[Rfam]
Shown here is a 127-nucleotide RNA sequence from Molossus molossus, a member of the family "Small nucleolar RNA SNORA27". The match comes from Rfam's covariance-model search (130 bits). Pairs were carried over by alignment from the consensus structure. Gene Ontology terms of the family: RNA processing and nucleolus. About the family: ACA27 is a member of the H/ACA class of snoRNA that guide the sites of modification of uridines to pseudouridines.
RNA sequence: UGCCCGUUUUUCACUUUGCCAAUUGAACUUAUGUCUUUAUUGGUCGUUCAAGUGGGGCAAAGAAAAUAUCCUUUUAAAACUCAAGCUAAUUGGGUGUUUGAUUUGCAUCCUGUCAGAGGUAACAAAU
Number, nucleotide and partner (000 for none) at each position: 001u000002g000003c000004c000005c000006g000007u000008u000009u000010u000011u000012c000013a000014c000015u000016u000017u000018g000019c000020c000021a000022a000023u000024u000025g000026a000027a000028c000029u000030u000031a000032u059033g058034u057035c056036u055037u000038u000039a000040u051041u050042g049043g048044u000045c000046g000047u000048u043049c042050a041051a040052g000053u000054g000055g036056g035057g034058c033059a032060a000061a000062g000063a000064a000065a000066a000067u000068a000069u000070c119071c118072u117073u116074u115075u000076a000077a000078a000079a000080c000081u000082c105083a103084a102085g000086c100087u000088a098089a097090u096091u000092g000093g000094g000095u000096g090097u089098u088099u000100g086101a000102u084103u083104u000105g082106c000107a000108u000109c000110c000111u000112g000113u000114c000115a074116g073117a072118g071119g070120u000121a000122a000123c000124a000125a000126a000127u000